[Rfam]
RNA sequence: CUCCGGUGAUGAUCCAGCCAUGCUAAUACUGAUGCACCAGGCAGGUGCACGACGUCUGUCUGGGUGUACAUGAGUGCAACUCACCUUCUCACGCUGAUGGUA
Numbered sequence: 001c002u003c004c005g006g007u008g009a010u011g012a013u014c015c016a017g018c019c020a021u022g023c024u025a026a027u028a029c030u031g032a033u034g035c036a037c038c039a040g041g042c043a044g045g046u047g048c049a050c051g052a053c054g055u056c057u058g059u060c061u062g063g064g065u066g067u068a069c070a071u072g073a074g075u076g077c078a079a080c081u082c083a084c085c086u087u088c089u090c091a092c093g094c095u096g097a098u099g100g101u102a
Stems, first nucleotide, its partner, number of pairs: 002100002042058005